[Rfam]
Rfam assigns this 78-nucleotide RNA to the family "L13-Bacteroidia ribosomal protein leader". On this family, see Eckert and Weinberg, BMC Microbiol 2020: "Discovery of 20 novel ribosomal leader candidates in bacteria and archaea".
RNA sequence: GGGGAUACACUUAGAGUCCCCUGCAUGAGGGUGUUAAUAGCGCUUGUCGAAAAGGCCAGACGGCGUGGUUAGUGAAUC
Numbered sequence: 001g002g003g004g005a006u007a008c009a010c011u012u013a014g015a016g017u018c019c020c021c022u023g024c025a026u027g028a029g030g031g032u033g034u035u036a037a038u039a040g041c042g043c044u045u046g047u048c049g050a051a052a053a054g055g056c057c058a059g060a061c062g063g064c065g066u067g068g069u070u071a072g073u074g075a076a077u078c
Stems, first nucleotide, its partner, number of pairs: 001021006034072005040066003044063005